MIR2619 microRNA precursor family: a 198-nucleotide sequence from Medicago truncatula.
Its family is annotated with miRNA-mediated post-transcriptional gene silencing and RISC complex in the Gene Ontology.
Lineage of the source: Eukaryota > Euphyllophyta > Magnoliopsida > rosids > Medicago.
A search with the family's covariance model found it, with a score of 141 bits.

[Rfam]
RNA sequence: AAACAGUCCCUUAUGUAUUGGAUCUUUGGCAGUUUUGGCCCCCAAGGCCACUUUUGACUUAGUCUUCGCUGACAUGACACCUAUAUCCCUUAAGUAAGGUGCCACGUGUCGACCAUUGUGAGUGACACGUCAGCGAAGACUAAUCAAAAGUGGCCUUGGGGCCAAAACUGUCAAAGAUCCAAUACAUAGGGGUUGUUU
Numbered sequence: 001a002a003a004c005a006g007u008c009c010c011u012u013a014u015g016u017a018u019u020g021g022a023u024c025u026u027u028g029g030c031a032g033u034u035u036u037g038g039c040c041c042c043c044a045a046g047g048c049c050a051c052u053u054u055u056g057a058c059u060u061a062g063u064c065u066u067c068g069c070u071g072a073c074a075u076g077a078c079a080c081c082u083a084u085a086u087c088c089c090u091u092a093a094g095u096a097a098g099g100u101g102c103c104a105c106g107u108g109u110c111g112a113c114c115a116u117u118g119u120g121a122g123u124g125a126c127a128c129g130u131c132a133g134c135g136a137a138g139a140c141u142a143a144u145c146a147a148a149a150g151u152g153g154c155c156u157u158g159g160g161g162c163c164a165a166a167a168c169u170g171u172c173a174a175a176g177a178u179c180c181a182a183u184a185c186a187u188a189g190g191g192g193u194u195g196u197u198u
Stems, first nucleotide, its partner, number of pairs: 001198002004195005012188029042159004072130002075127002078124003082120004